Rfam assigns this 83-nucleotide sequence from Cicer arietinum to the family "Small nucleolar RNA Z102/R77". Clan: SNORD44 clan. The family's consensus secondary structure was predicted with PFOLD. For this family Rfam cites "The high diversity of snoRNAs in plants: identification and comparative study of 120 snoRNA genes from Oryza sativa" (Chen et al., Nucleic Acids Res, 2003). Rfam links the family to the GO terms nucleolus and RNA processing.

Nucleotides: 083
Stems, first nucleotide, its partner, number of pairs: 002082001004080002037057001040055004
Number, partner (000 for none) and nucleotide at each position: 001000g002082a003000a004080u005079g006000g007000a008000a009000u010000g011000a012000u013000g014000a015000a016000u017000a018000u019000u020000u021000g022000u023000u024000u025000c026000c027000c028000u029000a030000u031000u032000g033000g034000u035000u036000u037057g038000a039000c040055u041054g042053u043052c044000a045000a046000a047000a048000u049000g050000a051000u052043g053042g054041c055040a056000u057037c058000a059000u060000g061000u062000a063000u064000u065000a066000g067000c068000u069000c070000u071000a072000u073000c074000u075000g076000a077000c078000c079005c080004a081000c082002u083000c